[Rfam]
RNA: mir-5014 microRNA precursor family
RNA sequence: UUUGAUUUGUACACUUAGAUCUGUACAACAUUUUUAGUGUACAAAUGUAUAUAAAAAUACACAACGUACACUUACAUCUGUACAAUAAAAGUGUUGUACAGAUCUAGGUGUACAAAUCAAA
Numbered sequence: 001u002u003u004g005a006u007u008u009g010u011a012c013a014c015u016u017a018g019a020u021c022u023g024u025a026c027a028a029c030a031u032u033u034u035u036a037g038u039g040u041a042c043a044a045a046u047g048u049a050u051a052u053a054a055a056a057a058u059a060c061a062c063a064a065c066g067u068a069c070a071c072u073u074a075c076a077u078c079u080g081u082a083c084a085a086u087a088a089a090a091g092u093g094u095u096g097u098a099c100a101g102a103u104c105u106a107g108g109u110g111u112a113c114a115a116a117u118c119a120a121a
Base pairs, nucleotide, nucleotide: 001121002120003119004118005117006116007115008114009113010112011111012110013109014108015107016106017105018104019103020102021101022100023099024098025097026096027095028094029093030092031091032090033089034088035087036086038084039083040082041081042080043079045077046076052074053073054072058068059067060066